[Rfam]
RNA sequence: CAAUCCCGCGUGGGAGAGUCCCUGCCGGUCCAGGCCGCGCAGGGCGCCGAAGGUGCAACUCCUCCCCGGAACCUCUCAGGUGCAAAGGACCACGCGGAGCAG
Numbered sequence: 001c002a003a004u005c006c007c008g009c010g011u012g013g014g015a016g017a018g019u020c021c022c023u024g025c026c027g028g029u030c031c032a033g034g035c036c037g038c039g040c041a042g043g044g045c046g047c048c049g050a051a052g053g054u055g056c057a058a059c060u061c062c063u064c065c066c067c068g069g070a071a072c073c074u075c076u077c078a079g080g081u082g083c084a085a086a087g088g089a090c091c092a093c094g095c096g097g098a099g100c101a102g
Stems, first nucleotide, its partner, number of pairs: 006097008020044006046081003049077002053075001055073001059069002

Rfam assigns this 102-nucleotide RNA from Nocardioides daedukensis to the family "Glycine riboswitch aptamer". Rfam's curators write: This family represents the bacterial glycine riboswitch. A search with the family's covariance model found it, with a score of 60 bits. Its family is annotated with glycine biosynthetic process in the Gene Ontology. The source organism's lineage runs through Bacteria, Actinomycetota, Actinomycetes, Nocardioidaceae and Nocardioides.